[Rfam]
RNA sequence: CGGAAGUGCCGUGCUGAUCGUGUGUGCCGGAAGCCUCAAGAACUCCCAUCAUCCAGGUCACAAGGCACUUCUGCGUUCCGGCCCCCGACCACCCGCGAUCGCCGACCUGUGGAUCAG
Numbered sequence: 001c002g003g004a005a006g007u008g009c010c011g012u013g014c015u016g017a018u019c020g021u022g023u024g025u026g027c028c029g030g031a032a033g034c035c036u037c038a039a040g041a042a043c044u045c046c047c048a049u050c051a052u053c054c055a056g057g058u059c060a061c062a063a064g065g066c067a068c069u070u071c072u073g074c075g076u077u078c079c080g081g082c083c084c085c086c087g088a089c090c091a092c093c094c095g096c097g098a099u100c101g102c103c104g105a106c107c108u109g110u111g112g113a114u115c116a117g
Stems, first nucleotide, its partner, number of pairs: 002072009012062002015060003019056001022054001025051002030046001032044002097115004103111002
A member of the RNA family "Actinobacteria sRNA Ms_IGR-7", 117 nucleotides long. It scores 46 bits against the family's covariance model. The family has 14 seed sequences and 463 matches in Rfam 15.1.